[Rfam]
RNA sequence: AAGAAUCUUCGGGGUCGGGUGUAAUUCCCUACCGGCGGUGACAGUCCGCGAACCGCUUCGGCGGCCGAUUCGGUGCAAUUCCGAGACCGACAGUAAAGUCUGGAUGAUAGAAGAUGCAA
Numbered sequence: 001a002a003g004a005a006u007c008u009u010c011g012g013g014g015u016c017g018g019g020u021g022u023a024a025u026u027c028c029c030u031a032c033c034g035g036c037g038g039u040g041a042c043a044g045u046c047c048g049c050g051a052a053c054c055g056c057u058u059c060g061g062c063g064g065c066c067g068a069u070u071c072g073g074u075g076c077a078a079u080u081c082c083g084a085g086a087c088c089g090a091c092a093g094u095a096a097a098g099u100c101u102g103g104a105u106g107a108u109a110g111a112a113g114a115u116g117c118a119a
Base pairs, nucleotide, nucleotide: 003117005115006114007113008112009111010110017029018028019027031099032098033089034088035049036048037047038046044087045086053064054063069085070084071083072082073081091102092101093100